[Rfam]
RNA sequence: ACGUGAAAAAGGCAAACCGGCCGAAAGGCCGGGACGCAAAGCUCAGGAGGCUAAGGCCGCGAGGCUAGGCCAGUCCGGCUGCCGCA
Numbered sequence: 001a002c003g004u005g006a007a008a009a010a011g012g013c014a015a016a017c018c019g020g021c022c023g024a025a026a027g028g029c030c031g032g033g034a035c036g037c038a039a040a041g042c043u044c045a046g047g048a049g050g051c052u053a054a055g056g057c058c059g060c061g062a063g064g065c066u067a068g069g070c071c072a073g074u075c076c077g078g079c080u081g082c083c084g085c086a
Stems, first nucleotide, its partner, number of pairs: 012037002017032006040080004046076003049071003056065003
A member of the RNA family "c-di-GMP-I riboswitch aptamer" from Intestinimonas butyriciproducens, 86 nucleotides long. For this family Rfam cites "Identification of 22 candidate structured RNAs in bacteria using the CMfinder comparative genomics pipeline" (Weinberg et al., Nucleic Acids Res, 2007). Taxonomically the source falls in Intestinimonas (Bacteria, Bacillati, Bacillota, Eubacteriales). The family's consensus secondary structure is taken from published work. Rfam describes the family as follows. GEMM was predicted in a large-scale screen for bacterial structured RNA regulatory elements.